[Rfam]
RNA sequence: GGCAAUAAACGGGAUGUGGCAUAGGCGUAGUGGACCCGGGGGCGGUACCCGGCGUCUCCACCAUAAAUCCGGAUCGCAAGACCCGGACAGAUGGGGACGAAACAGGCUCGACACGCGCAGUAAAGACAUCUUUUUUGCCCGGUAUUGUACCACCGUUAUCGGGCUAAUUUUACAAGUGCCAAUGAUAACACUGAGGUGCUCGCUGUUGCUGCAUAA
Number, nucleotide and partner (000 for none) at each position: 001g139002g138003c137004a136005a135006u000007a000008a000009a000010c000011g000012g000013g000014a129015u128016g127017u126018g000019g000020c000021a000022u000023a000024g000025g000026c117027g116028u115029a000030g114031u113032g112033g000034a000035c000036c052037c051038g050039g049040g048041g000042g000043c000044g000045g000046u000047a000048c040049c039050c038051g037052g036053c099054g098055u097056c096057u095058c094059c093060a000061c000062c000063a000064u000065a000066a000067a000068u000069c000070c000071g000072g000073a000074u000075c000076g000077c000078a000079a000080g000081a000082c000083c000084c000085g000086g000087a000088c000089a000090g000091a000092u000093g059094g058095g057096g056097a055098c054099g053100a000101a000102a000103c000104a000105g000106g000107c000108u000109c000110g000111a000112c032113a031114c030115g028116c027117g026118c000119a000120g000121u000122a000123a000124a000125g000126a017127c016128a015129u014130c000131u000132u000133u000134u000135u005136u004137g003138c002139c001140c155141g154142g153143u152144a000145u000146u000147g000148u000149a000150c000151c000152a143153c142154c141155g140156u000157u000158a000159u000160c000161g000162g000163g000164c000165u000166a000167a000168u000169u000170u000171u000172a000173c000174a000175a000176g000177u000178g000179c000180c000181a000182a000183u000184g000185a000186u000187a000188a000189c000190a000191c000192u000193g000194a000195g000196g000197u000198g000199c000200u000201c000202g000203c000204u000205g000206u000207u000208g000209c000210u000211g000212c000213a000214u000215a000216a000

Source information
permuted transfer-messenger RNA: a 216-nucleotide RNA sequence from Acetobacter sp. DsW_54. The base pairs follow the family's consensus structure, which is taken from published work. The source organism's lineage runs through Bacteria, Pseudomonadati, Pseudomonadota, Alphaproteobacteria and Acetobacter. Rfam's curators write: Bacterial tmRNA, also known as 10Sa RNA or SsrA, is named for its dual tRNA and mRNA-like properties. Its role is to liberate the mRNA from a stalled ribosome. To accomplish this part of the tmRNA is used as a reading frame that ends in a translation stop signal. The broken mRNA is replaced in the ribosome by the tmRNA and translation of the tmRNA leads to addition of a proteolysis tag to the incomplete protein enabling recognition by a protease. A search with the family's covariance model found it, with a score of 151 bits.